RNA sequence: UAGCGGAGGGCGCAUAUGAACGAAGUUCAUAUUUAGGAUGCGCCCUACAACCUGCCGCCGAGCGAAGCGAGGGGGCAAUACCCGCA
Numbered sequence: 001u002a003g004c005g006g007a008g009g010g011c012g013c014a015u016a017u018g019a020a021c022g023a024a025g026u027u028c029a030u031a032u033u034u035a036g037g038a039u040g041c042g043c044c045c046u047a048c049a050a051c052c053u054g055c056c057g058c059c060g061a062g063c064g065a066a067g068c069g070a071g072g073g074g075g076c077a078a079u080a081c082c083c084g085c086a
Stems, first nucleotide, its partner, number of pairs: 008045006015031006054076003058072002062068002
RNA: GA-cis RNA